[Rfam]
RNA: NoRC associated RNA, pRNA
Organism: Pan troglodytes
RNA sequence: CCAUUAUGGCAUUUUUGGGGACAGAUGUCCAGGUCGCGCAUUUAUAGGCCAGUGGCAUGGUCGGUGACUUGACACCCUGCCUCCAGGCG
Numbered sequence: 001c002c003a004u005u006a007u008g009g010c011a012u013u014u015u016u017g018g019g020g021a022c023a024g025a026u027g028u029c030c031a032g033g034u035c036g037c038g039c040a041u042u043u044a045u046a047g048g049c050c051a052g053u054g055g056c057a058u059g060g061u062c063g064g065u066g067a068c069u070u071g072a073c074a075c076c077c078u079g080c081c082u083c084c085a086g087g088c089g
Stems, first nucleotide, its partner, number of pairs: 004086001008083002018078003027068003030064001033061004038056002